[Rfam]
RNA: TPP riboswitch aptamer (THI element)
Organism: Ancylomarina salipaludis
RNA sequence: UCAUACCGUUAGGGGUGCUUGAUUUUAUCAGGCUGAGAUAAAACCCUGGAACCUGACAUGCAUAAUAGCAGCGUAGGAAAACGAAUUCAUUUUAAG
Numbered sequence: 001u002c003a004u005a006c007c008g009u010u011a012g013g014g015g016u017g018c019u020u021g022a023u024u025u026u027a028u029c030a031g032g033c034u035g036a037g038a039u040a041a042a043a044c045c046c047u048g049g050a051a052c053c054u055g056a057c058a059u060g061c062a063u064a065a066u067a068g069c070a071g072c073g074u075a076g077g078a079a080a081a082c083g084a085a086u087u088c089a090u091u092u093u094a095a096g
Stems, first nucleotide, its partner, number of pairs: 007083004011047004016041001017033005052077004059070003